A member of the RNA family "Vault RNA" from Gymnodraco acuticeps, 107 nucleotides long. The family's RNA type in Rfam is non-coding RNA gene. A reference for the family is Stadler et al. (2009), "Evolution of Vault RNAs", Mol Biol Evol.
RNA sequence: GCGCUGGCUUAGCUCAGUGGUUACUUCGAACGACAAUUCUACUCCAGAAUUCUUCCUGUUCUCUGUCUCCUCGCGGGAUCGAACCACGGGCGCAGUCCAGUGUUUUC
Numbered sequence: 001g002c003g004c005u006g007g008c009u010u011a012g013c014u015c016a017g018u019g020g021u022u023a024c025u026u027c028g029a030a031c032g033a034c035a036a037u038u039c040u041a042c043u044c045c046a047g048a049a050u051u052c053u054u055c056c057u058g059u060u061c062u063c064u065g066u067c068u069c070c071u072c073g074c075g076g077g078a079u080c081g082a083a084c085c086a087c088g089g090g091c092g093c094a095g096u097c098c099a100g101u102g103u104u105u106u107c
Stems, first nucleotide, its partner, number of pairs: 002102006012091004017087004025083005
The organism belongs to Gymnodraco, within Eukaryota. Pairs were carried over by alignment from the consensus structure, which is taken from published work.